Rfam assigns this 61-nucleotide RNA sequence to the family "Plastid-psbA-4 3UTR RNA".
The literature on the family includes a 2023 paper in Plant Commun by Richter et al., "Retrograde signaling in plants: A critical review focusing on the GUN pathway and beyond".
The base pairs follow the family's consensus structure, which was predicted with LocARNA.
About the family: Plastid psbA-4 is a non-coding RNA (ncRNA) present in plastids. It was identified in inverted repeat sequences in the 3 prime untranslate region (3UTR) of photosystem II quinone-binding protein (psbA).
RNA sequence: AAACAAAAGAGCAAUAUCAAACCUUUUGCUAUAAAACAAAAGGUUUGAUAUUGCUCUUCAA
Numbered sequence: 001a002a003a004c005a006a007a008a009g010a011g012c013a014a015u016a017u018c019a020a021a022c023c024u025u026u027u028g029c030u031a032u033a034a035a036a037c038a039a040a041a042g043g044u045u046u047g048a049u050a051u052u053g054c055u056c057u058u059c060a061a
Base pairs, nucleotide, nucleotide: 007058008057009056010055011054012053013052014051015050016049020045021044023042024041025040026039027038028037